[Rfam]
RNA sequence: UGGCACCCAAUGUGGGGCCUGGAUACUGGGGGACAAUGUGAGGGUCCAACGACGAUGAAGAAAGAAGGGGUGCAUCCAUUCAAAUAGUUCGGAGACGUCGCGGUAGCCUGCUGUGACCAAGCUGACAGGUAAGUUGGUCAUUCAGUCAUGGGGCAAGAAUUGAGUCAGCAUCAGAAAUAUGUGAUACAGCUAAGAGAAGCUUUACAGGCAAGAGGAGUAAAGGUUACAACUGAAGAUUUAUUUCAUUUCUUUGAUUUUGUGAAGGACCUUUGUCCCU
Numbered sequence: 001u002g003g004c005a006c007c008c009a010a011u012g013u014g015g016g017g018c019c020u021g022g023a024u025a026c027u028g029g030g031g032g033a034c035a036a037u038g039u040g041a042g043g044g045u046c047c048a049a050c051g052a053c054g055a056u057g058a059a060g061a062a063a064g065a066a067g068g069g070g071u072g073c074a075u076c077c078a079u080u081c082a083a084a085u086a087g088u089u090c091g092g093a094g095a096c097g098u099c100g101c102g103g104u105a106g107c108c109u110g111c112u113g114u115g116a117c118c119a120a121g122c123u124g125a126c127a128g129g130u131a132a133g134u135u136g137g138u139c140a141u142u143c144a145g146u147c148a149u150g151g152g153g154c155a156a157g158a159a160u161u162g163a164g165u166c167a168g169c170a171u172c173a174g175a176a177a178u179a180u181g182u183g184a185u186a187c188a189g190c191u192a193a194g195a196g197a198a199g200c201u202u203u204a205c206a207g208g209c210a211a212g213a214g215g216a217g218u219a220a221a222g223g224u225u226a227c228a229a230c231u232g233a234a235g236a237u238u239u240a241u242u243u244c245a246u247u248u249c250u251u252u253g254a255u256u257u258u259g260u261g262a263a264g265g266a267c268c269u270u271u272g273u274c275c276c277u
Stems, first nucleotide, its partner, number of pairs: 006031003012026003037051003089129002091126001096121001099115005139153001141152004161204003164200002212252006221239005262277001264275004

Overview
This 277-nucleotide RNA sequence from Nannospalax galili belongs to the Rfam family "Mason-Pfizer monkey virus packaging signal". The source organism's lineage runs through Eukaryota, Vertebrata, Gnathostomata, Spalacinae and Nannospalax. It is annotated as a cis-regulatory element. On this family, see Mustafa et al., Virus Res 2004: "Mutational analysis of the predicted secondary RNA structure of the Mason-Pfizer monkey virus packaging signal".